[Rfam]
RNA sequence: UAACCGAUUCCUAAGGAAUCGCUGAACCAUCAGAAGUCAGCCGAAGCCAUAGUACCUUACCUUCCGGAAGGUAGGGGAAGGGC
Numbered sequence: 001u002a003a004c005c006g007a008u009u010c011c012u013a014a015g016g017a018a019u020c021g022c023u024g025a026a027c028c029a030u031c032a033g034a035a036g037u038c039a040g041c042c043g044a045a046g047c048c049a050u051a052g053u054a055c056c057u058u059a060c061c062u063u064c065c066g067g068a069a070g071g072u073a074g075g076g077g078a079a080g081g082g083c
Stems, first nucleotide, its partner, number of pairs: 001024002005021007037044002046083003055076006
The family of this 83-nucleotide RNA sequence from Salimicrobium jeotgali is "Group II catalytic intron D1-D4-1". Gene Ontology term of the family: Group II intron splicing. Rfam describes the family as follows. Group II introns are found in rRNA, tRNA and mRNA of organelles in fungi, plants and protists, and also in mRNA in bacteria.